Shown here is a 103-nucleotide RNA sequence from Carpinus fangiana, a member of the family "MIR162_1 microRNA precursor family". On this family, see Reinhart et al., Genes Dev 2002: "MicroRNAs in plants". The base pairs follow the family's consensus structure, which was predicted with RNAalifold. Rfam links the family to the GO terms RISC complex and miRNA-mediated post-transcriptional gene silencing.
[Rfam]
Nucleotides: 103
Base pairs, nucleotide, nucleotide: 013091014090015089018086019085020084022082023081024080025079027077028076029075030074031073032072033071036068037067038066
Number, partner (000 for none) and nucleotide at each position: 001000g002000g003000u004000g005000a006000a007000g008000u009000c010000a011000c012000u013091g014090g015089a016000g017000g018086c019085a020084g021000c022082g023081g024080u025079u026000c027077a028076u029075c030074g031073a032072u033071c034000u035000c036068u037067u038066c039000c040000u041000g042000g043000g044000a045000a046000u047000u048000u049000g050000u051000u052000g053000c054000a055000a056000c057000a058000c059000a060000a061000a062000a063000c064000a065000u066038g067037a068036a069000u070000c071033g072032g073031u074030c075029g076028a077027u078000a079025a080024a081023c082022c083000u084020c085019u086018g087000c088000a089015u090014c091013c092000a093000g094000c095000g096000c097000u098000c099000a100000c101000c102000u103000c